[Rfam]
RNA: Small nucleolar RNA SNORD22
RNA sequence: CUUUUAUGAUGUAACAUGCACACGUCUUACGCCUUGUCAACACCAGAACCUGAAAAGGUGAACCCACUGGUGUUGCUUGUGCAAAAAGGGGAUACUUUGUUGGGGUUGCCAACGGUCUGAGAGGG
Number, nucleotide and partner (000 for none) at each position: 001c124002u123003u122004u121005u000006a000007u000008g000009a000010u000011g000012u000013a000014a000015c000016a000017u000018g000019c000020a000021c000022a000023c000024g000025u000026c000027u000028u000029a000030c000031g000032c000033c000034u000035u000036g000037u000038c000039a000040a000041c000042a000043c000044c000045a000046g000047a000048a000049c000050c000051u000052g000053a000054a000055a000056a000057g000058g000059u000060g000061a000062a000063c000064c000065c000066a000067c000068u000069g000070g000071u000072g000073u000074u000075g000076c000077u000078u000079g000080u000081g000082c000083a000084a000085a000086a000087a000088g000089g000090g000091g000092a000093u000094a000095c000096u000097u000098u000099g000100u000101u000102g000103g000104g000105g000106u000107u000108g000109c000110c000111a000112a000113c000114g000115g000116u000117c000118u000119g000120a000121g004122a003123g002124g001125g000